[Rfam]
RNA sequence: CCUCUUGAUGAUGAGGAAUUGAUCUCCUACAUCCUCACCGGCCUCGACUAUGAGUACAACCCCAUUGUGUCAGCCCUUGUUGCAAGGGCUGAUGCAAUCACCAUGGGAGAAGCGUACUCACAGCUACUCAGCUUUGAGC
Numbered sequence: 001c002c003u004c005u006u007g008a009u010g011a012u013g014a015g016g017a018a019u020u021g022a023u024c025u026c027c028u029a030c031a032u033c034c035u036c037a038c039c040g041g042c043c044u045c046g047a048c049u050a051u052g053a054g055u056a057c058a059a060c061c062c063c064a065u066u067g068u069g070u071c072a073g074c075c076c077u078u079g080u081u082g083c084a085a086g087g088g089c090u091g092a093u094g095c096a097a098u099c100a101c102c103a104u105g106g107g108a109g110a111a112g113c114g115u116a117c118u119c120a121c122a123g124c125u126a127c128u129c130a131g132c133u134u135u136g137a138g139c
Stems, first nucleotide, its partner, number of pairs: 004138005089107002092104002
Small nucleolar RNA Z247: a 139-nucleotide sequence from Panicum miliaceum. Rfam classes the family as a C/D-box small nucleolar RNA. A reference for the family is Chen et al. (2003), "The high diversity of snoRNAs in plants: identification and comparative study of 120 snoRNA genes from Oryza sativa", Nucleic Acids Res. Rfam 15.1 lists 7,071 matches to the family in 142 species. It scores 77 bits against the family's covariance model. The source organism's lineage runs through Eukaryota, commelinids, Panicoideae, Panicodae and Panicum sect. Panicum. Rfam links the family to the GO terms nucleolus and RNA processing.